[Rfam]
RNA sequence: CUGAUUUGAGGACAAACAGAACAAAGACUUCAUGUUC
Numbered sequence: 001c002u003g004a005u006u007u008g009a010g011g012a013c014a015a016a017c018a019g020a021a022c023a024a025a026g027a028c029u030u031c032a033u034g035u036u037c
Stems, first nucleotide, its partner, number of pairs: 001019002005016003

Rfam assigns this 37-nucleotide sequence from Chinchilla lanigera to the family "Renin stability regulatory element (REN-SRE)".
About the family: This family represents a cis-acting element in the 3'-UTR of the renin (REN) gene called renin stability regulatory element (REN-SRE) which acts to regulate renin production. REN-SRE is thought to destabilise the mRNA, promoting degradation of the sequence. It has been found that a number of proteins bind to the REN-SRE to stabilise the mRNA and promote translation.
A search with the family's covariance model found it, with a score of 50 bits.
Pairs were carried over by alignment from the consensus structure, which is taken from published work.
The organism belongs to Chinchilla, within Eukaryota.
It is annotated as a cis-regulatory element.
Gene Ontology terms of the family: protein binding and RNA destabilization.